[Rfam]
RNA sequence: AACCUCUGCCCUAGGCCAUAGUAGAAGUGCUCAUGAUGCAGCCCUGUCAGAUUCCAGCAAAUCUGUGAGUUCUGCU
Numbered sequence: 001a002a003c004c005u006c007u008g009c010c011c012u013a014g015g016c017c018a019u020a021g022u023a024g025a026a027g028u029g030c031u032c033a034u035g036a037u038g039c040a041g042c043c044c045u046g047u048c049a050g051a052u053u054c055c056a057g058c059a060a061a062u063c064u065g066u067g068a069g070u071u072c073u074g075c076u
Stems, first nucleotide, its partner, number of pairs: 014043003020076007027039003048065006

A member of the RNA family "Mammalian CPEB3 ribozyme" from Alligator mississippiensis, 76 nucleotides long. The family's consensus secondary structure is taken from published work. NCBI's taxonomy places the organism under Eukaryota, Teleostomi, Dipnotetrapodomorpha, Tetrapoda, Alligator.